A member of the RNA family "MIR1120/MIR1122 microRNA precursor family" from Triticum urartu, 87 nucleotides long. Gene Ontology terms of the family: miRNA-mediated post-transcriptional gene silencing and RISC complex. Taxonomically the source falls in Triticum (Eukaryota, Viridiplantae, Mesangiospermae, commelinids).

RNA sequence: UUACUCCCUAUGUCCCAUAAUAUAAGAUCGUUUUGCAAGAUGUUUUAGCUUGCAAAACGAUCUUAUAUUAUGGGGCAGAGGGAGUAG
Numbered sequence: 001u002u003a004c005u006c007c008c009u010a011u012g013u014c015c016c017a018u019a020a021u022a023u024a025a026g027a028u029c030g031u032u033u034u035g036c037a038a039g040a041u042g043u044u045u046u047a048g049c050u051u052g053c054a055a056a057a058c059g060a061u062c063u064u065a066u067a068u069u070a071u072g073g074g075g076c077a078g079a080g081g082g083a084g085u086a087g
Base pairs, nucleotide, nucleotide: 003085004084005083007081008080009079011077013075014074015073016072017071019069020068021067022066023065024064025063026062027061028060029059030058031057032056033055034054035053036052037051038050039049041047